[Rfam]
RNA sequence: GCCAUUGCAGCUGAUGACUUUUCUCCCAGUCAGAUCGACCCUGUUGAUCUCACUGAAUUAGCCAGUUUUGUUGAUGGCAUUGGU
Numbered sequence: 001g002c003c004a005u006u007g008c009a010g011c012u013g014a015u016g017a018c019u020u021u022u023c024u025c026c027c028a029g030u031c032a033g034a035u036c037g038a039c040c041c042u043g044u045u046g047a048u049c050u051c052a053c054u055g056a057a058u059u060a061g062c063c064a065g066u067u068u069u070g071u072u073g074a075u076g077g078c079a080u081u082g083g084u
Base pairs, nucleotide, nucleotide: 001084002083003082004081006079007078008077009075
The record is an 84-nucleotide sequence from Sus scrofa, which matches "Small nucleolar SNORD12/SNORD106" in Rfam. Pairs were carried over by alignment from the consensus structure, which was predicted with RNAalifold. Its Rfam clan is "SNORD12 clan". The source organism's lineage runs through Eukaryota, Opisthokonta, Chordata, Vertebrata and Sus. It is annotated as a C/D-box small nucleolar RNA.